[Rfam]
RNA sequence: AUUUAUGGCUUCUAGGGUUCCGAUUAAGCCUCAAUUAAGCAAUGCAAGGUUUAAUGACUGGUCCGAGAGAAGCAAACUGUCUGCAUUAGAGCAGGCAGUCACACGGCGGGACAAAAGCCCGGGAGAG
Numbered sequence: 001a002u003u004u005a006u007g008g009c010u011u012c013u014a015g016g017g018u019u020c021c022g023a024u025u026a027a028g029c030c031u032c033a034a035u036u037a038a039g040c041a042a043u044g045c046a047a048g049g050u051u052u053a054a055u056g057a058c059u060g061g062u063c064c065g066a067g068a069g070a071a072g073c074a075a076a077c078u079g080u081c082u083g084c085a086u087u088a089g090a091g092c093a094g095g096c097a098g099u100c101a102c103a104c105g106g107c108g109g110g111a112c113a114a115a116a117g118c119c120c121g122g123g124a125g126a127g
Stems, first nucleotide, its partner, number of pairs: 008073005015064002020061002022058001023055009076099009102122001104125001108120003

About this RNA
Rfam assigns this 127-nucleotide RNA sequence from Phormidesmis priestleyi to the family "Guanidine-I riboswitch aptamer". The organism belongs to Phormidesmis priestleyi, within Bacteria. A search with the family's covariance model found it, with a score of 82 bits.